[Rfam]
RNA sequence: CGCAGUAGCAGCGAUAGUCGGGUUAGAAUCCUGACGGCCGAACGAGUAAGGGUUCCUCGGCAAUGUUCGUCAGCCGAGGGUUAGUCGAUCCUAAGUCCUGUCGUAAUUCGAGCAGGACAAAAUGGGAAGCUGGUUAAUAUUCCAGCACCACUCUACAGUGAACGCUGACGCCUGGGGGUCAACCGGGCCACGCCUUCGCGUGGUCGAACUGUCCAACCCCGUGGAAGCCGUAAAGGCACGAAGCGGGAGAACGGCAGGACAGCGUAAGCCGGUCCAACCUCGGGCCCGUGAAAAGGCAAGUAGAGUGAUCGUACCGAGAACCGACACAGGUGCUCGUGGCGGCGAAAGCCAAGGCCUGU
Numbered sequence: 001c002g003c004a005g006u007a008g009c010a011g012c013g014a015u016a017g018u019c020g021g022g023u024u025a026g027a028a029u030c031c032u033g034a035c036g037g038c039c040g041a042a043c044g045a046g047u048a049a050g051g052g053u054u055c056c057u058c059g060g061c062a063a064u065g066u067u068c069g070u071c072a073g074c075c076g077a078g079g080g081u082u083a084g085u086c087g088a089u090c091c092u093a094a095g096u097c098c099u100g101u102c103g104u105a106a107u108u109c110g111a112g113c114a115g116g117a118c119a120a121a122a123u124g125g126g127a128a129g130c131u132g133g134u135u136a137a138u139a140u141u142c143c144a145g146c147a148c149c150a151c152u153c154u155a156c157a158g159u160g161a162a163c164g165c166u167g168a169c170g171c172c173u174g175g176g177g178g179u180c181a182a183c184c185g186g187g188c189c190a191c192g193c194c195u196u197c198g199c200g201u202g203g204u205c206g207a208a209c210u211g212u213c214c215a216a217c218c219c220c221g222u223g224g225a226a227g228c229c230g231u232a233a234a235g236g237c238a239c240g241a242a243g244c245g246g247g248a249g250a251a252c253g254g255c256a257g258g259a260c261a262g263c264g265u266a267a268g269c270c271g272g273u274c275c276a277a278c279c280u281c282g283g284g285c286c287c288g289u290g291a292a293a294a295g296g297c298a299a300g301u302a303g304a305g306u307g308a309u310c311g312u313a314c315c316g317a318g319a320a321c322c323g324a325c326a327c328a329g330g331u332g333c334u335c336g337u338g339g340c341g342g343c344g345a346a347a348g349c350c351a352a353g354g355c356c357u358g359u
Stems, first nucleotide, its partner, number of pairs: 017035006036356004044335004050315002055079006064072002086311003090125002095118006101111003129146005149307008164297003170285008182273004186205006209257004218247005227237003263268001321330002337351004
Rfam assigns this 359-nucleotide part of an RNA from Salinirubellus salinus to the family "Archaeal large subunit ribosomal RNA". Lineage of the source: Archaea > Methanobacteriati > Methanobacteriota > Halobacteriales > Salinirubellus. The family's consensus secondary structure is taken from published work. The family is grouped with related families in Rfam's "LSU clan".